[Rfam]
RNA: c-di-GMP-I riboswitch aptamer
Organism: Vibrio paucivorans
RNA sequence: UCACGCACAGGGCAAACCAUUCGAAAGUUUGGGACGCAAAGCUUCCGGCCUACGGCAUUUACUUGCUAUGGUAGCGGGGUUACCGAU
Numbered sequence: 001u002c003a004c005g006c007a008c009a010g011g012g013c014a015a016a017c018c019a020u021u022c023g024a025a026a027g028u029u030u031g032g033g034a035c036g037c038a039a040a041g042c043u044u045c046c047g048g049c050c051u052a053c054g055g056c057a058u059u060u061a062c063u064u065g066c067u068a069u070g071g072u073a074g075c076g077g078g079g080u081u082a083c084c085g086a087u
Stems, first nucleotide, its partner, number of pairs: 012037002017032003022027001040081004045077003048072003055066003